Rfam assigns this 70-nucleotide sequence from Pseudomonas graminis to the family "narK RNA".
RNA sequence: GGCCCACGUAUUGCUAAGUAGAACCAACAGGUAACCAACGGCGGUUGCCCACUCACGACAAAGACGUCGC
Numbered sequence: 001g002g003c004c005c006a007c008g009u010a011u012u013g014c015u016a017a018g019u020a021g022a023a024c025c026a027a028c029a030g031g032u033a034a035c036c037a038a039c040g041g042c043g044g045u046u047g048c049c050c051a052c053u054c055a056c057g058a059c060a061a062a063g064a065c066g067u068c069g070c
Stems, first nucleotide, its partner, number of pairs: 030049007
Dot-bracket structure: .............................(((((((......))))))).....................

Lineage of the source: Bacteria > Pseudomonadota > Gammaproteobacteria > Pseudomonadales > Pseudomonas. A search with the family's covariance model found it, with a score of 74 bits.